[Rfam]
Description:
Shown here is a 92-nucleotide RNA from Branchiostoma lanceolatum, a member of the family "mir-2060 microRNA precursor family". The family has 7 seed sequences and 3,696 matches in Rfam 15.1. A search with the family's covariance model found it, with a score of 77 bits.

RNA sequence: GCUUGCCUGUGUGUGGAUGAAGUUCAGCACCAGGGACAGGUAUGUUUCUGUGUUUGGAUGGUGUUCAGCACUAGGUACAGGUGUGUUUGCUU
Numbered sequence: 001g002c003u004u005g006c007c008u009g010u011g012u013g014u015g016g017a018u019g020a021a022g023u024u025c026a027g028c029a030c031c032a033g034g035g036a037c038a039g040g041u042a043u044g045u046u047u048c049u050g051u052g053u054u055u056g057g058a059u060g061g062u063g064u065u066c067a068g069c070a071c072u073a074g075g076u077a078c079a080g081g082u083g084u085g086u087u088u089g090c091u092u
Stems, first nucleotide, its partner, number of pairs: 004083007018073002022069003026065007034053001036051005